Annotation: The family of this 178-nucleotide sequence from Syntrophobacter fumaroxidans is "6S / SsrS RNA". The family's consensus secondary structure is taken from published work. From the family's description: E. coli 6S RNA was the first non coding RNA to be sequenced, but its function was unknown until recently. It consists of 184 nucleotides that fold into an extended hairpin structure with a large single-stranded internal bulge. The 6S RNA specifically associates with RNA polymerase holoenzyme containing the sigma70 specificity factor.

RNA sequence: CAGCCCCUGCUGUGUUUGUGAUUGGGUGUACUUCCUGAGCCAACAUACAAAAAACGGGAACUCCCUCUGGCUCCGGUGUGCAGGUCAGGAAACUGAAAGCCUAAAGGAGCCACGGAGUGCCCACCUUAGAACAGCGGUUCAAGGCCGGCUGUCCAACACGGCACAAUGCGGGGGCGUU
Numbered sequence: 001c002a003g004c005c006c007c008u009g010c011u012g013u014g015u016u017u018g019u020g021a022u023u024g025g026g027u028g029u030a031c032u033u034c035c036u037g038a039g040c041c042a043a044c045a046u047a048c049a050a051a052a053a054a055c056g057g058g059a060a061c062u063c064c065c066u067c068u069g070g071c072u073c074c075g076g077u078g079u080g081c082a083g084g085u086c087a088g089g090a091a092a093c094u095g096a097a098a099g100c101c102u103a104a105a106g107g108a109g110c111c112a113c114g115g116a117g118u119g120c121c122c123a124c125c126u127u128a129g130a131a132c133a134g135c136g137g138u139u140c141a142a143g144g145c146c147g148g149c150u151g152u153c154c155a156a157c158a159c160g161g162c163a164c165a166a167u168g169c170g171g172g173g174g175c176g177u178u
Stems, first nucleotide, its partner, number of pairs: 003175008012164004017160003033144002036141006056122003060118005068112007080100002085096004